[Rfam]
RNA sequence: AGCUCCACCGGGUCCACGGCGCGGGUGGUCAGCAGAUAGUCCCGCAUGGCGAUGGCGUGCCGGCCCUC
Numbered sequence: 001a002g003c004u005c006c007a008c009c010g011g012g013u014c015c016a017c018g019g020c021g022c023g024g025g026u027g028g029u030c031a032g033c034a035g036a037u038a039g040u041c042c043c044g045c046a047u048g049g050c051g052a053u054g055g056c057g058u059g060c061c062g063g064c065c066c067u068c
Stems, first nucleotide, its partner, number of pairs: 004063002008059001011030003015027003035056001037054002040052002043049001
The record is a 68-nucleotide sequence from Actinacidiphila oryziradicis, which matches "ASdes TB sRNA" in Rfam. Rfam 15.1 lists 1,192 matches to the family in 825 species. It is annotated as a small RNA. NCBI's taxonomy places the organism under Bacteria, Bacillati, Actinomycetota, Actinomycetes, Actinacidiphila.